A member of the RNA family "Small nucleolar RNA SNORA72" from Muntiacus reevesi, 132 nucleotides long.
Rfam describes the family as follows. U72 is a member of the H/ACA class of snoRNAs.
A search with the family's covariance model found it, with a score of 93 bits.

RNA sequence: CUGUGAAUAUUCUCAUGCUUCUGAUUUUGUAAUGGUCAGGGCAGGCCAAGCAUUCAGUAUAUUAAGACCAUGCUUGUGUCUCUAGACCUAGUUCUUUUGGUCAAUCUGGCUUUAUAAAUGCUGAUGGUAAAC
Numbered sequence: 001c002u003g004u005g006a007a008u009a010u011u012c013u014c015a016u017g018c019u020u021c022u023g024a025u026u027u028u029g030u031a032a033u034g035g036u037c038a039g040g041g042c043a044g045g046c047c048a049a050g051c052a053u054u055c056a057g058u059a060u061a062u063u064a065a066g067a068c069c070a071u072g073c074u075u076g077u078g079u080c081u082c083u084a085g086a087c088c089u090a091g092u093u094c095u096u097u098u099g100g101u102c103a104a105u106c107u108g109g110c111u112u113u114a115u116a117a118a119u120g121c122u123g124a125u126g127g128u129a130a131a132c
Stems, first nucleotide, its partner, number of pairs: 004056002016044001019041008067125001069123002072121002082109005090101001

On this family, see Ganot et al., Genes Dev 1997: "The family of box ACA small nucleolar RNAs is defined by an evolutionarily conserved secondary structure and ubiquitous sequence elements essential for RNA accumulation".
Rfam links the family to the GO terms nucleolus and RNA processing.
The family's consensus secondary structure was predicted with PFOLD.